[Rfam]
RNA sequence: ACAAAAAAGCCUGCAGAUUAGAAAUCUGCAGGCACCUUUUUUGAAUUGAUUCUCAUCAAAACAAAAAGGCAAAGGGAGAGGAGAAACCGGAGGAAGAACUUAUGGGGAACGUAAGUCUUCUCCGUCU
Numbered sequence: 001a002c003a004a005a006a007a008a009g010c011c012u013g014c015a016g017a018u019u020a021g022a023a024a025u026c027u028g029c030a031g032g033c034a035c036c037u038u039u040u041u042u043g044a045a046u047u048g049a050u051u052c053u054c055a056u057c058a059a060a061a062c063a064a065a066a067a068g069g070c071a072a073a074g075g076g077a078g079a080g081g082a083g084a085a086a087c088c089g090g091a092g093g094a095a096g097a098a099c100u101u102a103u104g105g106g107g108a109a110c111g112u113a114a115g116u117c118u119u120c121u122c123c124g125u126c127u
Base pairs, nucleotide, nucleotide: 011031012030013029014028015027016026017025018024019023037076038075039074040073041072046064047063048062050060051059088124089123090122091121093120094119095118096117098116099115100114101113102112
Rfam assigns this 127-nucleotide sequence from Pontibacillus yanchengensis to the family "ylbH leader". Pairs were carried over by alignment from the consensus structure. Lineage of the source: Bacteria > Bacillati > Bacillota > Caryophanales > Pontibacillus yanchengensis. A search with the family's covariance model found it, with a score of 87 bits. About the family: This family is a putative regulatory RNA structure that is found upstream of the ylbH gene in B. subtilis and related low GC Gram-positive bacteria.